[Rfam]
Notes:
Small nucleolar RNA sn668: a 65-nucleotide RNA from Ancylostoma caninum. The family's RNA type in Rfam is C/D-box small nucleolar RNA. The family has 6 seed sequences and 27 matches in Rfam 15.1. Rfam links the family to the GO terms RNA processing and nucleolus. Taxonomically the source falls in Ancylostoma (Eukaryota, Eumetazoa, Rhabditomorpha, Ancylostomatidae).
RNA sequence: UGUCGAUGAUGUUGUUUCAAGACGGGACUUACAAGAGAAUGAUUACACUAAGAAACCCUGAGACA
Numbered sequence: 001u002g003u004c005g006a007u008g009a010u011g012u013u014g015u016u017u018c019a020a021g022a023c024g025g026g027a028c029u030u031a032c033a034a035g036a037g038a039a040u041g042a043u044u045a046c047a048c049u050a051a052g053a054a055a056c057c058c059u060g061a062g063a064c065a
Base pairs, nucleotide, nucleotide: 001065002064003063004062
It scores 50 bits against the family's covariance model.